[Rfam]
RNA sequence: UUUUUUGGCAAACAAAUCCACACACGCAUCGGCACGUACGGCCGGGUGCCUCGCCCAAAUCCGCUCUUAGGAGCGGUUUAUGAGUGAGGUUGUCGUACGGGACGCGUGGCGGCUUAAC
Numbered sequence: 001u002u003u004u005u006u007g008g009c010a011a012a013c014a015a016a017u018c019c020a021c022a023c024a025c026g027c028a029u030c031g032g033c034a035c036g037u038a039c040g041g042c043c044g045g046g047u048g049c050c051u052c053g054c055c056c057a058a059a060u061c062c063g064c065u066c067u068u069a070g071g072a073g074c075g076g077u078u079u080a081u082g083a084g085u086g087a088g089g090u091u092g093u094c095g096u097a098c099g100g101g102a103c104g105c106g107u108g109g110c111g112g113c114u115u116a117a118c
Stems, first nucleotide, its partner, number of pairs: 023108005029102002035099008048090007
The family of this 118-nucleotide RNA sequence from a Steroidobacteraceae bacterium is "t44 RNA". Taxonomically the source falls in Steroidobacteraceae (Bacteria, Pseudomonadota, Gammaproteobacteria, Steroidobacterales). About the family: This family consists of a number of bacterial RNA genes of between 135 and 170 bases in length. The t44 gene has been identified in several species of enteric bacteria but homologs have also been identified in Pseudomonas and Coxiella species. The t44 gene is found between the map and rpsB genes in all species in the full alignment apart from Shigella flexneri. The function of this RNA is unknown. The family's RNA type in Rfam is small RNA. On this family, see Tjaden et al., Nucleic Acids Res 2002: "Transcriptome analysis of Escherichia coli using high-density oligonucleotide probe arrays".